[Rfam]
RNA sequence: UAGUAGAUGCACCCUGAUAAUUUUUCUACCCUCAGUCACUUGUGACCGAGGGCUUUUUAU
Dot-bracket structure: ..((......))................(((((.((((....)))).)))))........
The family of this 60-nucleotide RNA from Kamptonema sp. PCC 6506 is "Nitrogen stress-induced RNA 1". The literature on the family includes a 2010 paper in J Mol Biol by Ionescu et al., "Heterocyst-specific transcription of NsiR1, a non-coding RNA encoded in a tandem array of direct repeats in cyanobacteria". The family's RNA type in Rfam is small RNA.